[Rfam]
RNA sequence: CUGAAUCUCAUUGCAGCUGCUGACCACUGCACAAGAUUAGAUUAUGACUCUUGUGCGUGUGACAACGGCUAUUGUGGGCAUUCCAAAUCAACCAG
Numbered sequence: 001c002u003g004a005a006u007c008u009c010a011u012u013g014c015a016g017c018u019g020c021u022g023a024c025c026a027c028u029g030c031a032c033a034a035g036a037u038u039a040g041a042u043u044a045u046g047a048c049u050c051u052u053g054u055g056c057g058u059g060u061g062a063c064a065a066c067g068g069c070u071a072u073u074g075u076g077g078g079c080a081u082u083c084c085a086a087a088u089c090a091a092c093c094a095g
Stems, first nucleotide, its partner, number of pairs: 005081002007078005015070005021064002024061001025059002028057006035050002
Shown here is a 95-nucleotide sequence from Culex quinquefasciatus, a member of the family "mir-210 microRNA precursor family". Rfam 15.1 lists 790 matches to the family in 722 species. Pairs were carried over by alignment from the consensus structure, which was predicted with WAR. It is one of the family's seed sequences.